A member of the RNA family "TPP riboswitch aptamer (THI element)" from Vasconcelosia minhoensis, 105 nucleotides long. A search with the family's covariance model found it, with a score of 67 bits. Pairs were carried over by alignment from the consensus structure, which is taken from published work. About the family: Vitamin B(1) in its active form thiamin pyrophosphate (TPP) is an essential coenzyme that is synthesised by coupling of pyrimidine and thiazole moieties in bacteria. The previously detected thiamin-regulatory element, thi box was extended, resulting in a new, highly conserved RNA secondary structure, the THI element, which is widely distributed in eubacteria and also occurs in some archaea. Analysis of operon structures identified a large number of new candidate thiamin-regulated genes, mostly transporters, in various prokaryotic organisms.
RNA sequence: UUCCAUAGCUAGGGGUGCCCGCUUCUGACGAGGUCGGGCUGAGAUCAUACCCUUAGAACCUGAACACCGGCUAAUACCGGCGGAGGGAAGCUGUUACUCAGGAAC
Numbered sequence: 001u002u003c004c005a006u007a008g009c010u011a012g013g014g015g016u017g018c019c020c021g022c023u024u025c026u027g028a029c030g031a032g033g034u035c036g037g038g039c040u041g042a043g044a045u046c047a048u049a050c051c052c053u054u055a056g057a058a059c060c061u062g063a064a065c066a067c068c069g070g071c072u073a074a075u076a077c078c079g080g081c082g083g084a085g086g087g088a089a090g091c092u093g094u095u096a097c098u099c100a101g102g103a104a105c
Stems, first nucleotide, its partner, number of pairs: 006093005011053004016047001017039005059086003067080004